[Rfam]
RNA sequence: GACAAUUUGUGCUUUUGGUAUUUGUCCAGUAGGUUUCCUCGACGAGAAAGCCCAA
Numbered sequence: 001g002a003c004a005a006u007u008u009g010u011g012c013u014u015u016u017g018g019u020a021u022u023u024g025u026c027c028a029g030u031a032g033g034u035u036u037c038c039u040c041g042a043c044g045a046g047a048a049a050g051c052c053c054a055a
Stems, first nucleotide, its partner, number of pairs: 032052005038046003